RNA sequence: CUAUGAGGAUGAUCCCCUGUUGAACUCUCUCUUUCUGAUGGCUUAGUGGCGACCACGUUAAACCUCUGAGUAGC
Numbered sequence: 001c002u003a004u005g006a007g008g009a010u011g012a013u014c015c016c017c018u019g020u021u022g023a024a025c026u027c028u029c030u031c032u033u034u035c036u037g038a039u040g041g042c043u044u045a046g047u048g049g050c051g052a053c054c055a056c057g058u059u060a061a062a063c064c065u066c067u068g069a070g071u072a073g074c
Base pairs, nucleotide, nucleotide: 001073002072003071004070
RNA: Small nucleolar RNA SNORD26